[Rfam]
Nucleotides: 092
Stems, first nucleotide, its partner, number of pairs: 001088008010080002014076001016071003021066001022054003026050002
Number, partner (000 for none) and nucleotide at each position: 001088g002087g003086u004085u005084g006083g007082u008081c009000c010080a011079a012000g013000u014076g015000c016071a017070g018069u019000a020000g021066g022054a023053c024052u025000u026050g027049a028000u029000c030000a031000c032000a033000a034000c035000a036000g037000g038000a039000g040000a041000a042000a043000g044000a045000u046000u047000u048000c049027u050026u051000u052024g053023g054022u055000c056000u057000u058000u059000c060000u061000c062000u063000g064000c065000u066021c067000a068000c069018a070017c071016u072000g073000c074000u075000u076014c077000a078000c079011u080010u081008g082007a083006c084005u085004a086003g087002u088001u089000u090000u091000g092000a
This 92-nucleotide sequence from Sciurus carolinensis belongs to the Rfam family "Y RNA". A search with the family's covariance model found it, with a score of 49 bits. It is annotated as a non-coding RNA gene.